The family of this 136-nucleotide RNA from Orycteropus afer is "Small nucleolar RNA SNORA42/SNORA80 family".
[Rfam]
RNA sequence: GCGUGGGUUUGGAUUUAUGGCAGGCCUGUCCCCGUGGGCCUCUCAUAGUGUCCCAUGCUAGAGCAUACUGUAGCCCCGAACCAUUGCCUGGCUUCUCUGCCGGUAGGCUGCAGGCACUGAAGUGGGUUGCACAAUG
Number, nucleotide and partner (000 for none) at each position: 001g058002c057003g056004u055005g053006g052007g051008u050009u000010u000011g000012g000013a000014u000015u048016u047017a046018u045019g044020g043021c000022a041023g040024g039025c037026c036027u000028g000029u000030c000031c000032c000033c000034g000035u000036g026037g025038g000039c024040c023041u022042c000043u020044c019045a018046u017047a016048g015049u000050g008051u007052c006053c005054c000055a004056u003057g002058c001059u000060a000061g000062a000063g000064c000065a000066u000067a000068c000069u000070g000071u129072a128073g127074c126075c125076c124077c000078g000079a000080a000081c000082c119083a118084u000085u000086g000087c114088c113089u110090g109091g108092c107093u106094u105095c000096u000097c000098u000099g000100c000101c000102g000103g000104u000105a094106g093107g092108c091109u090110g089111c000112a000113g088114g087115c000116a000117c000118u083119g082120a000121a000122g000123u000124g076125g075126g074127u073128u072129g071130c000131a000132c000133a000134a000135u000136g000
The source organism's lineage runs through Eukaryota, Opisthokonta, Metazoa, Vertebrata and Orycteropus afer. The family's consensus secondary structure was predicted with RNAalifold. A reference for the family is Schattner et al. (2006), "A computational screen for mammalian pseudouridylation guide H/ACA RNAs", RNA. The family has 21 seed sequences and 1,535 matches in Rfam 15.1. Its family is annotated with nucleolus and RNA processing in the Gene Ontology.